[Rfam]
The family of this 247-nucleotide RNA sequence from Rummeliibacillus sp. TYF005 is "BsrG". The family has 6 seed sequences and 614 matches in Rfam 15.1. The source organism's lineage runs through Bacteria, Bacillati, Bacillota, Caryophanales and Rummeliibacillus. Rfam describes the family as follows. bsrE, bsrG and bsrH pair through intermolecular interactions with antisense sRNAs. Its family is annotated with toxin activity and autolysis in the Gene Ontology.
RNA sequence: UAAGAUAGUUGAUACUCAAGGGUGGUUGGCACUCUCCCAAAAAGGGUGUGAUGCCAAUGUCAGUAUUCGAGGCAUUAAUGUUUGCAAUCGCGUUUGCAACGUUAGUCAUUGCAAUUCUGUCAUUUAAUCAUAAAAAAUAACCCAUCCUUGAGUUAGCCGCUCGAAUGGGUUAUUUUAACCUAAUAACAGCCAAUCCCCUUAAGGGAACUAACUAUCUAAUUGACCGUUUGAUGGGAUAACAUCAGCG
Number, nucleotide and partner (000 for none) at each position: 001u219002a000003a217004g216005a215006u000007a213008g212009u211010u000011g209012a000013u193014a000015c152016u151017c150018a149019a148020g147021g146022g145023u000024g142025g141026u140027u139028g000029g000030c000031a000032c050033u000034c048035u000036c046037c045038c044039a000040a000041a000042a000043a000044g038045g037046g036047u000048g034049u000050g032051a000052u000053g000054c000055c000056a000057a000058u000059g121060u000061c119062a118063g117064u000065a115066u000067u000068c000069g000070a000071g000072g085073c084074a083075u000076u000077a000078a000079u000080g000081u000082u000083u074084g073085c072086a000087a000088u000089c000090g000091c000092g000093u000094u000095u113096g112097c111098a110099a000100c000101g000102u000103u000104a000105g000106u000107c000108a000109u000110u098111g097112c096113a095114a000115u065116u000117c063118u062119g061120u000121c059122a000123u000124u000125u000126a000127a000128u000129c000130a000131u000132a000133a000134a000135a000136a000137a000138u000139a027140a026141c025142c024143c000144a000145u022146c021147c020148u019149u018150g017151a016152g015153u000154u000155a000156g000157c000158c000159g000160c000161u000162c000163g181164a000165a000166u000167g000168g000169g000170u000171u000172a000173u000174u000175u000176u000177a000178a000179c000180c000181u163182a000183a000184u000185a000186a000187c000188a000189g000190c000191c000192a000193a013194u206195c205196c204197c203198c000199u000200u000201a000202a000203g197204g196205g195206a194207a000208c000209u011210a000211a009212c008213u007214a000215u005216c004217u003218a000219a001220u000221u000222g000223a000224c000225c247226g246227u245228u000229u244230g243231a242232u241233g240234g000235g000236a000237u000238a000239a000240c233241a232242u231243c230244a229245g227246c226247g225